Record summary
Shown here is an 83-nucleotide sequence from Flavobacterium sp. A45, a member of the family "Flavo-1 RNA". It scores 48 bits against the family's covariance model. The base pairs follow the family's consensus structure, which is taken from published work.

[Rfam]
RNA sequence: AGUUCGCUGUCGCUCGUGUGAAGUGAAAAUCCUUGUAAGCUGGGGUUCAGCUUACAAGAUUGCAACGGAAAGCGGGAACAAUA
Number, nucleotide and partner (000 for none) at each position: 001a000002g000003u000004u000005c000006g000007c000008u000009g000010u000011c000012g000013c000014u075015c074016g073017u000018g000019u070020g000021a000022a000023g066024u065025g000026a000027a000028a061029a060030u059031c058032c000033u000034u056035g055036u054037a053038a052039g051040c050041u049042g000043g000044g000045g000046u000047u000048c000049a041050g040051c039052u038053u037054a036055c035056a034057a000058g031059a030060u029061u028062g000063c000064a000065a024066c023067g000068g000069a000070a019071a000072g000073c016074g015075g014076g000077a000078a000079c000080a000081a000082u000083a000